[Rfam]
RNA sequence: GGUGUGACAGUGCCGCAGGCAGGAGCGGGGGAACCAUCAACGGGCGUCGCGAGACGUCCUGGGGUGAAGCCAGCGCACGUGCUCGUCGGGGAUGCACGUUCGGUGGCCGGGUGAUCUCCCACCCGAACCCGACAGCUCACCUCGUAGGCGUAGGAGAGGUUCAUU
Numbered sequence: 001g002g003u004g005u006g007a008c009a010g011u012g013c014c015g016c017a018g019g020c021a022g023g024a025g026c027g028g029g030g031g032a033a034c035c036a037u038c039a040a041c042g043g044g045c046g047u048c049g050c051g052a053g054a055c056g057u058c059c060u061g062g063g064g065u066g067a068a069g070c071c072a073g074c075g076c077a078c079g080u081g082c083u084c085g086u087c088g089g090g091g092a093u094g095c096a097c098g099u100u101c102g103g104u105g106g107c108c109g110g111g112u113g114a115u116c117u118c119c120c121a122c123c124c125g126a127a128c129c130c131g132a133c134a135g136c137u138c139a140c141c142u143c144g145u146a147g148g149c150g151u152a153g154g155a156g157a158g159g160u161u162c163a164u165u
Stems, first nucleotide, its partner, number of pairs: 011150004025145006035061002062130003070106003109124004
c-di-AMP riboswitch aptamer (ydaO/yuaA leader): a 165-nucleotide sequence from Luteipulveratus halotolerans. Taxonomically the source falls in Luteipulveratus (Bacteria, Bacillati, Actinomycetota, Micrococcales). Gene Ontology terms of the family: cyclic-di-AMP binding and regulation of gene expression.